Rfam assigns this 38-nucleotide RNA from Patiriisocius marinistellae to the family "DUF805b RNA".
The organism belongs to Patiriisocius, within Bacteria.
[Rfam]
RNA sequence: UUGGCGGUAACUGAAAAGCCACAAAAAAAGAGUAGGUA
Numbered sequence: 001u002u003g004g005c006g007g008u009a010a011c012u013g014a015a016a017a018g019c020c021a022c023a024a025a026a027a028a029a030g031a032g033u034a035g036g037u038a
Stems, first nucleotide, its partner, number of pairs: 002021004010037003
By type it is a cis-regulatory element.